RNA sequence: AUGAGAGAGGUUCAUAGCACUUACCCUCUAUAAAAAACUAUGGAACG
Numbered sequence: 001a002u003g004a005g006a007g008a009g010g011u012u013c014a015u016a017g018c019a020c021u022u023a024c025c026c027u028c029u030a031u032a033a034a035a036a037a038c039u040a041u042g043g044a045a046c047g
Stems, first nucleotide, its partner, number of pairs: 006029005015040002
Rfam assigns this 47-nucleotide RNA sequence from Bacillus mesophilum to the family "PreQ1 (pre queuosine) riboswitch aptamer". On this family, see Schroeder et al., Nucleic Acids Res 2020: "Analysis of a preQ1-I riboswitch in effector-free and bound states reveals a metabolite-programmed nucleobase-stacking spine that controls gene regulation". The pairing is the family consensus, mapped onto this sequence. This family is a bacterial riboswitch that binds to the metabolite preQ1, an intermediate in the biosynthesis of the modified nucleoside queuosine from GTP. One example of this riboswitch is located in the leader of the Bacillus subtilis ykvJKLM (queCDEF) operon which encodes four genes necessary for queuosine production. PreQ1 binding to the riboswitch aptamer is thought to induce premature transcription termination within the leader to down-regulate expression of these genes. Gene Ontology term of the family: queuosine biosynthetic process.